Overview:
The record is a 265-nucleotide part of an RNA from Morococcus cerebrosus, which matches "Bacterial large subunit ribosomal RNA" in Rfam. The family is grouped with related families in Rfam's "LSU clan". A search with the family's covariance model found it, with a score of 2865 bits. Its family is annotated with ribosome and structural constituent of ribosome in the Gene Ontology.
[Rfam]
RNA sequence: GGAAGUUUGACGGGGGCUGCUCCUAGUACGAGAGGACCGGAGUGGACGAACCUCUGGUGUACCGGUUGUAACGCCAGUUGCAUAGCCGGGUAGCUAAGUUCGGAAGAGAUAAGCGCUGAAAGCAUCUAAGCGCGAAACUCGCCUGAAGAUGAGACUUCCCUUGCGGUUUAACCGCACUAAAGAGUCGUUCGAGACCAGGACGUUGAUAGGUGGGGUGUGGAAGCGCGGUAACGCGUGAAGCUAACCCAUACUAAUUGCUCGUGAG
Numbered sequence: 001g002g003a004a005g006u007u008u009g010a011c012g013g014g015g016g017c018u019g020c021u022c023c024u025a026g027u028a029c030g031a032g033a034g035g036a037c038c039g040g041a042g043u044g045g046a047c048g049a050a051c052c053u054c055u056g057g058u059g060u061a062c063c064g065g066u067u068g069u070a071a072c073g074c075c076a077g078u079u080g081c082a083u084a085g086c087c088g089g090g091u092a093g094c095u096a097a098g099u100u101c102g103g104a105a106g107a108g109a110u111a112a113g114c115g116c117u118g119a120a121a122g123c124a125u126c127u128a129a130g131c132g133c134g135a136a137a138c139u140c141g142c143c144u145g146a147a148g149a150u151g152a153g154a155c156u157u158c159c160c161u162u163g164c165g166g167u168u169u170a171a172c173c174g175c176a177c178u179a180a181a182g183a184g185u186c187g188u189u190c191g192a193g194a195c196c197a198g199g200a201c202g203u204u205g206a207u208a209g210g211u212g213g214g215g216u217g218u219g220g221a222a223g224c225g226c227g228g229u230a231a232c233g234c235g236u237g238a239a240g241c242u243a244a245c246c247c248a249u250a251c252u253a254a255u256u257g258c259u260c261g262u263g264a265g
Stems, first nucleotide, its partner, number of pairs: 001159008011145004017045007047102005055096003062089005067082006106140003113133005162176005179262001182260004186202005207253003210249005217241001223236005